[Rfam]
RNA sequence: UGGGAGUGAAAGACAUGGGUAGUGAGAUGUGAGAUUGUCGACCUCUCACUACUUUGUCUUCCGCUCUCUC
Numbered sequence: 001u002g003g004g005a006g007u008g009a010a011a012g013a014c015a016u017g018g019g020u021a022g023u024g025a026g027a028u029g030u031g032a033g034a035u036u037g038u039c040g041a042c043c044u045c046u047c048a049c050u051a052c053u054u055u056g057u058c059u060u061c062c063g064c065u066c067u068c069u070c
Base pairs, nucleotide, nucleotide: 008062010060011059012058013057014056015055017054018053019052021050022049023048024047025046026045027044029042